This 170-nucleotide RNA sequence from a Chloroflexales bacterium belongs to the Rfam family "SAM riboswitch aptamer (S box leader)".
RNA sequence: CGCUCAUCAAGAGGGGUGGAGGGACCGGCCCUGCGAAACCCCAGCAACCCAGAGAAAUUGAAAAUUGAGAAUUGAAAAUUGAGAAGCCGAAGCGCUGUUUUCAAUUUCACAUUUUCAAUUGUACAUUUCUAAGGGUGCUAACUCCGGCAGCGUAAGCUGGAAGAUGAGGC
Numbered sequence: 001c002g003c004u005c006a007u008c009a010a011g012a013g014g015g016g017u018g019g020a021g022g023g024a025c026c027g028g029c030c031c032u033g034c035g036a037a038a039c040c041c042c043a044g045c046a047a048c049c050c051a052g053a054g055a056a057a058u059u060g061a062a063a064a065u066u067g068a069g070a071a072u073u074g075a076a077a078a079u080u081g082a083g084a085a086g087c088c089g090a091a092g093c094g095c096u097g098u099u100u101u102c103a104a105u106u107u108c109a110c111a112u113u114u115u116c117a118a119u120u121g122u123a124c125a126u127u128u129c130u131a132a133g134g135g136u137g138c139u140a141a142c143u144c145c146g147g148c149a150g151c152g153u154a155a156g157c158u159g160g161a162a163g164a165u166g167a168g169g170c
Stems, first nucleotide, its partner, number of pairs: 003168006013042005021031003025147004043139004048135002051130005143162001148159004
Dot-bracket structure: ..((((((....(((((...(((.[[[[)))......)))))((((.((.(((((......................................................................)))))...))))))...(]]]]((((....))))..)))))))..
NCBI's taxonomy places the organism under Bacteria, Bacillati, Chloroflexota, Chloroflexia, Chloroflexales. Its family is annotated with regulation of gene expression in the Gene Ontology.